[Rfam]
RNA sequence: AGGUAAAGUCUGCUGAACCUCUAUCACUGCAGGCACUCGGUCAUGCUGUGGGCGCCUAGCGCCUUAGACGUUCAUCGUCGAGGGUAUGAUGUGAGGAAGGGUUGAAUGCCCU
Numbered sequence: 001a002g003g004u005a006a007a008g009u010c011u012g013c014u015g016a017a018c019c020u021c022u023a024u025c026a027c028u029g030c031a032g033g034c035a036c037u038c039g040g041u042c043a044u045g046c047u048g049u050g051g052g053c054g055c056c057u058a059g060c061g062c063c064u065u066a067g068a069c070g071u072u073c074a075u076c077g078u079c080g081a082g083g084g085u086a087u088g089a090u091g092u093g094a095g096g097a098a099g100g101g102u103u104g105a106a107u108g109c110c111c112u
Stems, first nucleotide, its partner, number of pairs: 001020004008034006036095004040090008050064006067079004098112005
Dot-bracket structure: [[[[...((((((...]]]]........)))))).((((((((((((..((((((...))))))..((((.....))))...)))))))).))))..(((((.....)))))
The record is a 112-nucleotide RNA sequence from Paenibacillus sp. J2TS4, which matches "epsC RNA" in Rfam. Rfam 15.1 lists 450 matches to the family in 334 species. The base pairs follow the family's consensus structure, which is taken from published work. The organism belongs to Paenibacillus, within Bacteria. A search with the family's covariance model found it, with a score of 101 bits.